Shown here is an 86-nucleotide sequence from Dethiobacter alkaliphilus, a member of the family "c-di-GMP-I riboswitch aptamer".
Its family is annotated with cyclic-di-GMP binding in the Gene Ontology.
The match comes from Rfam's covariance-model search (79 bits).
Pairs were carried over by alignment from the consensus structure, which is taken from published work.
RNA sequence: GUCGAAUAAAGGCAAACUCGCCGAAAGGCGGGGACGCAAAGCCACAGGCCUACGGUUGUAAUGACUAUGGCGGCUGGGUUGCCGGC
Numbered sequence: 001g002u003c004g005a006a007u008a009a010a011g012g013c014a015a016a017c018u019c020g021c022c023g024a025a026a027g028g029c030g031g032g033g034a035c036g037c038a039a040a041g042c043c044a045c046a047g048g049c050c051u052a053c054g055g056u057u058g059u060a061a062u063g064a065c066u067a068u069g070g071c072g073g074c075u076g077g078g079u080u081g082c083c084g085g086c
Base pairs, nucleotide, nucleotide: 012037013036017032018031019030020029021028022027040080041079042078043077045076046075047074048071049070050069055065056064057063058062